Annotation:
The record is a 91-nucleotide sequence from Olea europaea, which matches "mir-395 microRNA precursor family" in Rfam. The match comes from Rfam's covariance-model search (58 bits). The family has 25 seed sequences and 2,798 matches in Rfam 15.1. From the family's description: mir-395 was identified in both Arabidopsis thaliana and Oryza sativa computationally and was later experimentally verified. mir-395 is thought to target mRNAs coding for ATP sulphurylases. The mature sequence is excised from the 3' arm of the hairpin.
RNA sequence: GUUUUGGCUGGAGUUCCCUUGGCCACUUCAUUGAGUACUCAAUUUAGAGAAUAAUAUCCACUGAAGUGUUUGGGGGAACUCCUGUGGUUAC
Numbered sequence: 001g002u003u004u005u006g007g008c009u010g011g012a013g014u015u016c017c018c019u020u021g022g023c024c025a026c027u028u029c030a031u032u033g034a035g036u037a038c039u040c041a042a043u044u045u046a047g048a049g050a051a052u053a054a055u056a057u058c059c060a061c062u063g064a065a066g067u068g069u070u071u072g073g074g075g076g077a078a079c080u081c082c083u084g085u086g087g088u089u090a091c
Stems, first nucleotide, its partner, number of pairs: 005087001007085002011081010022071001024068007032060002035057001